[Rfam]
RNA sequence: UGCAGAGUAGACGAGGACGCGUUAAGUGUUGUCUGGACAGGGAGUUGUCAGGCAAACGAAGUCAAACGACGCGGUGUCUAAGUCGCAUCCCGCUGUA
Numbered sequence: 001u002g003c004a005g006a007g008u009a010g011a012c013g014a015g016g017a018c019g020c021g022u023u024a025a026g027u028g029u030u031g032u033c034u035g036g037a038c039a040g041g042g043a044g045u046u047g048u049c050a051g052g053c054a055a056a057c058g059a060a061g062u063c064a065a066a067c068g069a070c071g072c073g074g075u076g077u078c079u080a081a082g083u084c085g086c087a088u089c090c091c092g093c094u095g096u097a
Stems, first nucleotide, its partner, number of pairs: 001097005010084003015079005020073003026057002029055008040090003044086001061070003